Record summary
The record is a 75-nucleotide RNA from Treponema sp. JC4, which matches "tRNA" in Rfam. It is annotated as a transfer RNA. A search with the family's covariance model found it, with a score of 61 bits. Lineage of the source: Bacteria > Spirochaetota > Spirochaetia > Treponematales > Treponema.
RNA sequence: GAGAUUGUAGCUCAGCUGGAUUAGAGCACCACCCUGCGGAGGUGGGGGUCGCACGUUCGAAUCGUGUCAGUCUCA
Number, nucleotide and partner (000 for none) at each position: 001g074002a073003g072004a071005u070006u069007g068008u000009a000010g027011c026012u025013c024014a000015g000016c000017u000018g000019g000020a000021u000022u000023a000024g013025a012026g011027c010028a000029c045030c044031a043032c042033c041034c000035u000036g000037c000038g000039g000040a000041g033042g032043u031044g030045g029046g000047g000048g000049u000050c000051g067052c066053a065054c064055g063056u000057u000058c000059g000060a000061a000062u000063c055064g054065u053066g052067u051068c007069a006070g005071u004072c003073u002074c001075a000